[Rfam]
RNA sequence: AAAGCGUGAGGAUAGAAAAGCGUCGGCUAUCGCGGACCCUUAUGGGUCUCAAGUGUAGAAGAUUAUUAAUCUUUGAUGAGAUGCUGGAAGUGAUGCCCAACCACGCCUA
Numbered sequence: 001a002a003a004g005c006g007u008g009a010g011g012a013u014a015g016a017a018a019a020g021c022g023u024c025g026g027c028u029a030u031c032g033c034g035g036a037c038c039c040u041u042a043u044g045g046g047u048c049u050c051a052a053g054u055g056u057a058g059a060a061g062a063u064u065a066u067u068a069a070u071c072u073u074u075g076a077u078g079a080g081a082u083g084c085u086g087g088a089a090g091u092g093a094u095g096c097c098c099a100a101c102c103a104c105g106c107c108u109a
Stems, first nucleotide, its partner, number of pairs: 002108001004106005011031005021095005033078001034049006083101001085099003
RNA: skipping-rope RNA